[Rfam]
RNA: Small nucleolar SNORD12/SNORD106
Organism: Synaphobranchus kaupii
RNA sequence: AUCGGUGUUUGUGAUGACUAAUCUUUUUUCCCCAGCAGAUCGACACUGUUGACUACUCUGAAAAUUAAGCCAAAAUAUCUGAAACACCAGC
Numbered sequence: 001a002u003c004g005g006u007g008u009u010u011g012u013g014a015u016g017a018c019u020a021a022u023c024u025u026u027u028u029u030c031c032c033c034a035g036c037a038g039a040u041c042g043a044c045a046c047u048g049u050u051g052a053c054u055a056c057u058c059u060g061a062a063a064a065u066u067a068a069g070c071c072a073a074a075a076u077a078u079c080u081g082a083a084a085c086a087c088c089a090g091c
Stems, first nucleotide, its partner, number of pairs: 002090001004088006